This 136-nucleotide sequence from Drosophila ananassae belongs to the Rfam family "Small nucleolar RNA psi18S-841/snoR66".
RNA sequence: GGCAGAUGCACUCUGUGACACACAGAAAUCCACUUGUACUUACAAUUUGUUAGUUUGCCAGAGCAAGGGGAUGCGGUUUAUCCAUGUAGUCUAAGCCCUGCCUGGGGGAUUGCAUUGAAAACGUAUCUUACACGCC
Numbered sequence: 001g002g003c004a005g006a007u008g009c010a011c012u013c014u015g016u017g018a019c020a021c022a023c024a025g026a027a028a029u030c031c032a033c034u035u036g037u038a039c040u041u042a043c044a045a046u047u048u049g050u051u052a053g054u055u056u057g058c059c060a061g062a063g064c065a066a067g068g069g070g071a072u073g074c075g076g077u078u079u080a081u082c083c084a085u086g087u088a089g090u091c092u093a094a095g096c097c098c099u100g101c102c103u104g105g106g107g108g109a110u111u112g113c114a115u116u117g118a119a120a121a122c123g124u125a126u127c128u129u130a131c132a133c134g135c136c
Stems, first nucleotide, its partner, number of pairs: 002058006010050002014044003017040001020037003025033001064134001067129003071126003076122001081118002084115008092106001
From the family's description: psi18S-841 is a member of the H/ACA class of snoRNA. This family is responsible for guiding the modification of uridine 841 in Drosophila 18S rRNA to pseudouridine. Clan: SNORA28 clan. A search with the family's covariance model found it, with a score of 84 bits. The source organism's lineage runs through Eukaryota, Ecdysozoa, Pancrustacea, Muscomorpha and ananassae species complex.